RNA sequence: CGGGGAAUAUUUUUGCUGUUCUCAUUUUGUAAUAAUCACGACAGGCUAAAAAUUGGCUAUGUUAAGACCACGCAUGUGUCCCCAGACCUGGUUCUUUCCCUAGUCUGGUUUGAUCAAGGCUGGUGAUAGAC
Numbered sequence: 001c002g003g004g005g006a007a008u009a010u011u012u013u014u015g016c017u018g019u020u021c022u023c024a025u026u027u028u029g030u031a032a033u034a035a036u037c038a039c040g041a042c043a044g045g046c047u048a049a050a051a052a053u054u055g056g057c058u059a060u061g062u063u064a065a066g067a068c069c070a071c072g073c074a075u076g077u078g079u080c081c082c083c084a085g086a087c088c089u090g091g092u093u094c095u096u097u098c099c100c101u102a103g104u105c106u107g108g109u110u111u112g113a114u115c116a117a118g119g120c121u122g123g124u125g126a127u128a129g130a131c
Base pairs, nucleotide, nucleotide: 003057016044017043018042019041020040022038024036025035026034067124068123069122070121072120073119082108083107084106085105086104087103089102090101091100
RNA: Small nucleolar RNA SNORA72
Organism: Enhydra lutris